Notes: Shown here is a 97-nucleotide RNA sequence from Treponema vincentii, a member of the family "TD-2 RNA". The source organism's lineage runs through Bacteria, Pseudomonadati, Spirochaetota, Treponema and Treponema vincentii. The family has 36 seed sequences and 310 matches in Rfam 15.1. By type it is a small RNA. The literature on the family includes a 2007 paper in Nucleic Acids Res by Weinberg et al., "Identification of 22 candidate structured RNAs in bacteria using the CMfinder comparative genomics pipeline". The base pairs follow the family's consensus structure, which is taken from published work.

RNA sequence: AGCGGCACGGAUGCCGCUGGUUCCUUCAGAAGCGAUGUUUCAGCGAUGCUGAAACUCGCUGCCAAAAGUGUACAAGGAUGUACACUUUUGGCAAGGC
Numbered sequence: 001a002g003c004g005g006c007a008c009g010g011a012u013g014c015c016g017c018u019g020g021u022u023c024c025u026u027c028a029g030a031a032g033c034g035a036u037g038u039u040u041c042a043g044c045g046a047u048g049c050u051g052a053a054a055c056u057c058g059c060u061g062c063c064a065a066a067a068g069u070g071u072a073c074a075a076g077g078a079u080g081u082a083c084a085c086u087u088u089u090g091g092c093a094a095g096g097c
Stems, first nucleotide, its partner, number of pairs: 001018006033058003037055008060093014